[Rfam]
The record is a 118-nucleotide RNA sequence from Candidatus Enterovibrio escicola, which matches "Ribosomal S15 leader" in Rfam. Rfam's curators write: The E. coli Ribosomal S15 gene 5' UTR can form two alternative structures. One that is a series of three hairpins, The other includes a pseudoknot. This structure causes translational regulation of the S15 protein. Its family is annotated with regulation of translation, ncRNA-mediated in the Gene Ontology.
RNA sequence: GGUGUUGGCUGAAUCAGAGAUUGGCAGGCAUACAUCAAACCAUCCCAUUUAGGAAAAGACUAUGUCUCUGAAUGCAAAAAUUAAAGCGGUAAUUAUUGCUGAACACGCCCAAGGCGAA
Number, nucleotide and partner (000 for none) at each position: 001g000002g000003u000004g000005u000006u000007g000008g025009c024010u023011g022012a021013a000014u000015c000016a000017g000018a000019g000020a000021u012022u011023g010024g009025c008026a000027g000028g000029c000030a000031u000032a000033c000034a000035u000036c000037a000038a000039a000040c000041c000042a000043u000044c000045c000046c000047a000048u072049u071050u070051a069052g068053g067054a000055a000056a000057a000058g000059a000060c000061u000062a000063u000064g000065u000066c000067u053068c052069u051070g050071a049072a048073u000074g000075c000076a000077a000078a000079a000080a000081u000082u000083a000084a000085a000086g000087c000088g000089g000090u000091a000092a000093u000094u000095a000096u000097u000098g000099c000100u000101g000102a000103a000104c000105a000106c000107g000108c000109c000110c000111a000112a000113g000114g000115c000116g000117a000118a000
Notes: On this family, see Benard et al., Biochimie 1996: "Pseudoknot and translational control in the expression of the S15 ribosomal protein".